[Rfam]
RNA sequence: AGCCACGCACUGAUCACGUAGCGAACUAUUUUUUCGCGUUUUACUAAAGAAUACUGCGUGCUUGCCUCAGAUGGUGGCAUAAGAUUUUAGCAAAAAAGAAUCUUAUGAGUUUAUUU
Numbered sequence: 001a002g003c004c005a006c007g008c009a010c011u012g013a014u015c016a017c018g019u020a021g022c023g024a025a026c027u028a029u030u031u032u033u034u035c036g037c038g039u040u041u042u043a044c045u046a047a048a049g050a051a052u053a054c055u056g057c058g059u060g061c062u063u064g065c066c067u068c069a070g071a072u073g074g075u076g077g078c079a080u081a082a083g084a085u086u087u088u089a090g091c092a093a094a095a096a097a098g099a100a101u102c103u104u105a106u107g108a109g110u111u112u113a114u115u116u
Stems, first nucleotide, its partner, number of pairs: 003077004011064003015060004027053008092116001094115002097112003

U5 spliceosomal RNA: a 116-nucleotide sequence from Ziziphus jujuba. The match comes from Rfam's covariance-model search (47 bits). Lineage of the source: Eukaryota > Viridiplantae > Streptophyta > Magnoliopsida > Ziziphus. Pairs were carried over by alignment from the consensus structure, which is taken from published work. U5 RNA is a component of both types of known spliceosome. The precise function of this molecule is unknown, though it is known that the 5' loop is required for splice site selection and p220 binding, and that both the 3' stem-loop and the Sm site are important for Sm protein binding and cap methylation.